Shown here is a 39-nucleotide RNA from Cronobacter sakazakii, a member of the family "JUMPstart RNA". The family's consensus secondary structure is taken from published work. NCBI's taxonomy places the organism under Bacteria, Pseudomonadati, Enterobacterales, Enterobacteriaceae, Cronobacter sakazakii.
RNA sequence: UAGUGCACUGGUAGCUAUUGAGCCAGGGGCGGUAGCAUU
Numbered sequence: 001u002a003g004u005g006c007a008c009u010g011g012u013a014g015c016u017a018u019u020g021a022g023c024c025a026g027g028g029g030c031g032g033u034a035g036c037a038u039u
Stems, first nucleotide, its partner, number of pairs: 008026005